[Rfam]
RNA: RNase MRP
Organism: Apiosordaria backusii
Nucleotides: 535
Base pairs, nucleotide, nucleotide: 002535003534004533005532006531007530008528009527010526011525014475015474016473017472018471019470023089024087025086026085027084028083029082039068040067041066042065044063045062093520094519095518097517098516099515100514135146136145137144138143264279265278266277268275269274281446282445283444288441289440290439291438293436298433300431410420411419413417477504479502
Number, partner (000 for none) and nucleotide at each position: 001000c002535u003534c004533u005532c006531g007530c008528c009527c010526g011525a012000c013000a014475a015474a016473u017472c018471g019470c020000u021000a022000u023089u024087c025086g026085a027084a028083g029082c030000u031000u032000a033000c034000a035000a036000a037000c038000g039068g040067a041066a042065a043000g044063a045062a046000u047000u048000c049000u050000u051000c052000u053000u054000c055000g056000g057000a058000a059000g060000u061000c062045u063044u064000g065042u066041u067040u068039c069000a070000c071000a072000a073000c074000c075000a076000u077000c078000a079000c080000a081000a082029g083028c084027u085026u086025u087024g088000g089023g090000a091000g092000a093520a094519a095518g096000u097517c098516c099515c100514c101000g102000g103000a104000c105000a106000u107000g108000c109000c110000g111000a112000g113000c114000c115000u116000g117000a118000u119000u120000u121000a122000u123000c124000a125000c126000a127000a128000u129000c130000g131000g132000u133000g134000u135146u136145g137144c138143g139000g140000a141000a142000a143138c144137g145136c146135g147000c148000c149000g150000c151000c152000a153000u154000a155000g156000a157000a158000g159000c160000a161000c162000a163000g164000c165000g166000g167000c168000u169000g170000a171000u172000c173000u174000c175000g176000a177000u178000u179000u180000g181000c182000c183000c184000g185000u186000c187000u188000u189000g190000u191000u192000c193000c194000u195000u196000g197000u198000c199000u200000u201000u202000u203000u204000u205000c206000c207000u208000g209000u210000c211000c212000a213000c214000u215000g216000c217000c218000c219000g220000g221000c222000c223000u224000c225000a226000u227000c228000a229000c230000a231000c232000c233000a234000a235000a236000g237000u238000c239000g240000g241000c242000u243000u244000c245000g246000a247000g248000u249000u250000u251000c252000a253000c254000u255000c256000u257000u258000u259000u260000c261000a262000u263000g264279g265278a266277c267000u268275a269274g270000g271000u272000u273000a274269c275268u276000u277266g278265u279264c280000u281446g282445u283444u284000c285000u286000u287000a288441c289440g290439a291438g292000g293436c294000u295000g296000g297000a298433g299000a300431c301000c302000a303000c304000a305000u306000g307000g308000a309000c310000g311000a312000a313000g314000a315000u316000a317000u318000g319000a320000g321000u322000c323000c324000g325000c326000g327000c328000u329000c330000u331000g332000u333000g334000c335000u336000g337000u338000u339000c340000g341000g342000g343000a344000u345000g346000g347000g348000c349000u350000c351000g352000u353000c354000u355000u356000g357000g358000u359000u360000c361000c362000u363000c364000u365000g366000a367000g368000g369000u370000u371000a372000g373000u374000g375000g376000c377000u378000u379000g380000a381000g382000u383000c384000g385000a386000u387000g388000g389000u390000g391000g392000g393000g394000c395000u396000g397000c398000c399000g400000u401000g402000g403000u404000g405000g406000c407000a408000g409000a410420c411419a412000u413417c414000g415000u416000g417413g418000c419411u420410g421000g422000g423000a424000a425000c426000g427000u428000c429000a430000u431300g432000g433298c434000g435000c436293g437000g438291c439290u440289c441288g442000a443000g444283a445282a446281u447000u448000u449000u450000c451000g452000u453000c454000a455000c456000g457000a458000u459000a460000c461000c462000a463000c464000a465000g466000a467000u468000a469000u470019g471018c472017g473016a474015u475014u476000g477504c478000c479502c480000a481000u482000c483000u484000c485000u486000c487000u488000c489000g490000a491000a492000u493000g494000a495000g496000a497000g498000g499000a500000u501000g502479g503000a504477g505000u506000u507000a508000c509000u510000c511000g512000a513000c514100g515099g516098g517097g518095c519094u520093u521000a522000u523000u524000c525011u526010c527009g528008g529000u530007g531006c532005g533004a534003g535002a